[Rfam]
The record is a 79-nucleotide sequence from Hoyosella subflava, which matches "hya RNA" in Rfam. Pairs were carried over by alignment from the consensus structure, which is taken from published work. Lineage of the source: Bacteria > Mycobacteriales > Hoyosellaceae > Hoyosella > Hoyosella subflava.

RNA sequence: UGCGUCACGCAAGUGGGCCGAGGGUCGACUCCUGUGACGAAGGGGCUUCGAGGCACUGUCCCGCCCCGGAAAGUGGCAA
Numbered sequence: 001u002g003c004g005u006c007a008c009g010c011a012a013g014u015g016g017g018c019c020g021a022g023g024g025u026c027g028a029c030u031c032c033u034g035u036g037a038c039g040a041a042g043g044g045g046c047u048u049c050g051a052g053g054c055a056c057u058g059u060c061c062c063g064c065c066c067c068g069g070a071a072a073g074u075g076g077c078a079a
Stems, first nucleotide, its partner, number of pairs: 003039006042067005
Dot-bracket structure: ..((((((.........................))))))..(((((................)))))............